A member of the RNA family "Small Cajal body specific RNA 23" from Fukomys damarensis, 124 nucleotides long. Rfam 15.1 lists 399 matches to the family in 374 species. The family's consensus secondary structure was predicted with RNAfold. Rfam classes the family as a small Cajal body RNA. For this family Rfam cites "Cajal body-specific small nuclear RNAs: a novel class of 2'-O-methylation and pseudouridylation guide RNAs" (Darzacq et al., EMBO J, 2002). It scores 128 bits against the family's covariance model. Rfam describes the family as follows. scaRNAs are a specific class of small nuclear RNAs which localise to the Cajal bodies and guide the modification of RNA polymerase II transcribed spliceosomal RNAs U1, U2, U4, U5 and U12. ACA11 belongs to the H/ACA box class of guide RNAs as it has the predicted hairpin-hinge-hairpin-tail structure,the conserved H/ACA-box motifs and is found associated with GAR1. H/ACA snRNAs are predicted to guide the modification of uridines to pseudouridines in substrate RNAs however, no target RNA has been identified for scaRNA ACA11. The organism belongs to Fukomys, within Eukaryota. Its family is annotated with nucleolus, RNA processing and Cajal body in the Gene Ontology.

RNA sequence: ACGCUCACUGGGUUUGGUCUUCUCCCCGUGGUCCUGACCUACCCACCGUGAGCAAGAGAAUCGGGACUGGUUUGGGGGUGUCCUGUCUGAGUGGACACUGGACAUCACGGUUUUCAGUACAACA
Numbered sequence: 001a002c003g004c005u006c007a008c009u010g011g012g013u014u015u016g017g018u019c020u021u022c023u024c025c026c027c028g029u030g031g032u033c034c035u036g037a038c039c040u041a042c043c044c045a046c047c048g049u050g051a052g053c054a055a056g057a058g059a060a061u062c063g064g065g066a067c068u069g070g071u072u073u074g075g076g077g078g079u080g081u082c083c084u085g086u087c088u089g090a091g092u093g094g095a096c097a098c099u100g101g102a103c104a105u106c107a108c109g110g111u112u113u114u115c116a117g118u119a120c121a122a123c124a
Base pairs, nucleotide, nucleotide: 003053004052005051006050007049008048011043012042013041016039017038018037019036024031025030064120066118067117068116069115070114072110073109074108077106078105079104080103081102082101083100085096086095087094088093